The record is an 80-nucleotide RNA sequence from Firmicutes bacterium AF36-19BH, which matches "ZMP/ZTP riboswitch aptamer (pfl RNA motif)" in Rfam. The family's consensus secondary structure is taken from published work.
[Rfam]
RNA sequence: CACAAAACGUGUGACUGGCGGAUUAGUGGAGAUCACCACGGGGAGCACGUUUGAAGAAACCGACCGCCUGGGUACUGACA
Numbered sequence: 001c002a003c004a005a006a007a008c009g010u011g012u013g014a015c016u017g018g019c020g021g022a023u024u025a026g027u028g029g030a031g032a033u034c035a036c037c038a039c040g041g042g043g044a045g046c047a048c049g050u051u052u053g054a055a056g057a058a059a060c061c062g063a064c065c066g067c068c069u070g071g072g073u074a075c076u077g078a079c080a
Stems, first nucleotide, its partner, number of pairs: 003053001005052008015042002017068005026039004059073003